[Rfam]
RNA sequence: GUCUAGCACGGAUGUCAAAUUACAAUUCGGUCUUUUUUCAAUGACUGUUGGUUGUGCCGAAGAUGUGCUGAAAGCAAAUUCAUGCAAGUAUCUCAGGUGGUGACACCGAGUACAAUGCCCGUACUUCAAUAACCUUCUUUAUGAAGGGGAAGUCAUUGUAUUGCAAACAUAC
Numbered sequence: 001g002u003c004u005a006g007c008a009c010g011g012a013u014g015u016c017a018a019a020u021u022a023c024a025a026u027u028c029g030g031u032c033u034u035u036u037u038u039c040a041a042u043g044a045c046u047g048u049u050g051g052u053u054g055u056g057c058c059g060a061a062g063a064u065g066u067g068c069u070g071a072a073a074g075c076a077a078a079u080u081c082a083u084g085c086a087a088g089u090a091u092c093u094c095a096g097g098u099g100g101u102g103a104c105a106c107c108g109a110g111u112a113c114a115a116u117g118c119c120c121g122u123a124c125u126u127c128a129a130u131a132a133c134c135u136u137c138u139u140u141a142u143g144a145a146g147g148g149g150a151a152g153u154c155a156u157u158g159u160a161u162u163g164c165a166a167a168c169a170u171a172c
Stems, first nucleotide, its partner, number of pairs: 004070007023054004029046004083165005096154003107121002110118002124146002127143002
RNA: Small nucleolar RNA snR85
Organism: Botryotinia calthae